[Rfam]
RNA: MIR4371 microRNA precursor family
Organism: Glycine max
RNA sequence: AAGUUAAGUGAUGACCUAACAGAGUGUCACAUCAUCACGUUUUGUCACGGACAUCUCAUUAUCACAUUAUUACCUUAAAUGACAUAGCACUAACGUGUCAGUGAUUGGACGUGAUGAUGUGACAUCCUGUUUGGCACAUCAUCACUUAAUGGAA
Numbered sequence: 001a002a003g004u005u006a007a008g009u010g011a012u013g014a015c016c017u018a019a020c021a022g023a024g025u026g027u028c029a030c031a032u033c034a035u036c037a038c039g040u041u042u043u044g045u046c047a048c049g050g051a052c053a054u055c056u057c058a059u060u061a062u063c064a065c066a067u068u069a070u071u072a073c074c075u076u077a078a079a080u081g082a083c084a085u086a087g088c089a090c091u092a093a094c095g096u097g098u099c100a101g102u103g104a105u106u107g108g109a110c111g112u113g114a115u116g117a118u119g120u121g122a123c124a125u126c127c128u129g130u131u132u133g134g135c136a137c138a139u140c141a142u143c144a145c146u147u148a149a150u151g152g153a154a
Stems, first nucleotide, its partner, number of pairs: 003150012015134002018131005024125019044105005050099005067082004